The record is a 69-nucleotide sequence from Nonomuraea solani, which matches "ASpks TB sRNA" in Rfam. Pairs were carried over by alignment from the consensus structure, which is taken from published work. The family's RNA type in Rfam is antisense RNA. Taxonomically the source falls in Nonomuraea (Bacteria, Actinomycetes, Streptosporangiales, Streptosporangiaceae).
RNA sequence: CUUCACCGAGCCCAGCCACAACGGCGACCGCCGCCCACGGCCAUAGGUGGCCAGCAGCGCCUGCGCCUC
Numbered sequence: 001c002u003u004c005a006c007c008g009a010g011c012c013c014a015g016c017c018a019c020a021a022c023g024g025c026g027a028c029c030g031c032c033g034c035c036c037a038c039g040g041c042c043a044u045a046g047g048u049g050g051c052c053a054g055c056a057g058c059g060c061c062u063g064c065g066c067c068u069c
Base pairs, nucleotide, nucleotide: 015025016024017023029065030064031063032059033058039052041050042049043048